[Rfam]
RNA sequence: UCGCGGACCACGCCUGUGGCCGCGAGCCGGGGACCCACCGCGUCACCGGGGUGAGUCCCACCGCCCGGUCCUCCCGGGAGGUGGGUAGGGCGACAUCCCCGCCCGAACCCGUCAGCUGACCCGGUAGGCGGCCACGGGAGAAACG
Number, nucleotide and partner (000 for none) at each position: 001u025002c024003g023004c022005g021006g020007a000008c000009c000010a000011c000012g000013c000014c000015u000016g000017u000018g000019g000020c006021c005022g004023c003024g002025a001026g125027c124028c123029g122030g121031g120032g000033a000034c000035c000036c048037a000038c000039c000040g000041c000042g000043u000044c000045a000046c000047c000048g036049g110050g109051g108052u000053g000054a000055g000056u000057c085058c084059c083060a082061c081062c080063g000064c000065c000066c000067g000068g000069u000070c000071c000072u000073c000074c000075c000076g000077g000078g000079a000080g062081g061082u060083g059084g058085g057086u000087a000088g104089g103090g102091c101092g000093a000094c000095a000096u000097c000098c000099c000100c000101g091102c090103c089104c088105g000106a000107a000108c051109c050110c049111g000112u000113c000114a000115g000116c000117u000118g000119a000120c031121c030122c029123g028124g027125u026126a000127g000128g000129c000130g000131g000132c000133c000134a000135c000136g000137g000138g000139a000140g000141a000142a000143a000144c000145g000

Annotation: This 145-nucleotide sequence from Geodermatophilus nigrescens belongs to the Rfam family "c-di-AMP riboswitch aptamer (ydaO/yuaA leader)".